[Rfam]
RNA: Small nucleolar RNA SNORD63
RNA sequence: GUGCCAUGAUGUUGACUGUCAACACAUCAUUCUGAAGAUUUGUGUGGAGACCUUCUGAAACUGAGCACC
Numbered sequence: 001g002u003g004c005c006a007u008g009a010u011g012u013u014g015a016c017u018g019u020c021a022a023c024a025c026a027u028c029a030u031u032c033u034g035a036a037g038a039u040u041u042g043u044g045u046g047g048a049g050a051c052c053u054u055c056u057g058a059a060a061c062u063g064a065g066c067a068c069c
Stems, first nucleotide, its partner, number of pairs: 001068004